[Rfam]
RNA: Small nucleolar RNA SNORD99
Organism: Penelope pileata
RNA sequence: CCCGGUCGGUGAUGACUCCUUGGUUUGGAGACUGCUGGAUGAAUCCUGCGGAUAUGGGGCUGAGGCUGGGC
Numbered sequence: 001c002c003c004g005g006u007c008g009g010u011g012a013u014g015a016c017u018c019c020u021u022g023g024u025u026u027g028g029a030g031a032c033u034g035c036u037g038g039a040u041g042a043a044u045c046c047u048g049c050g051g052a053u054a055u056g057g058g059g060c061u062g063a064g065g066c067u068g069g070g071c
Stems, first nucleotide, its partner, number of pairs: 001070005